Rfam assigns this 93-nucleotide RNA sequence from Fervidicella metallireducens to the family "Selenocysteine transfer RNA". The base pairs follow the family's consensus structure, which is taken from published work.

RNA sequence: GGGGGUAGAUAGGUGCUGGUGUGCCUGACAGUCUUCAAAACUGCUCUGCCGUGCUAAUAACACGACGGGUGGGUUCGAUUCCCACAUACUCCC
Numbered sequence: 001g002g003g004g005g006u007a008g009a010u011a012g013g014u015g016c017u018g019g020u021g022u023g024c025c026u027g028a029c030a031g032u033c034u035u036c037a038a039a040a041c042u043g044c045u046c047u048g049c050c051g052u053g054c055u056a057a058u059a060a061c062a063c064g065a066c067g068g069g070u071g072g073g074u075u076c077g078a079u080u081c082c083c084a085c086a087u088a089c090u091c092c093c
Stems, first nucleotide, its partner, number of pairs: 001093007008085001011026006027045001029043004047067002050064002070084004

Overview:
The match comes from Rfam's covariance-model search (66 bits).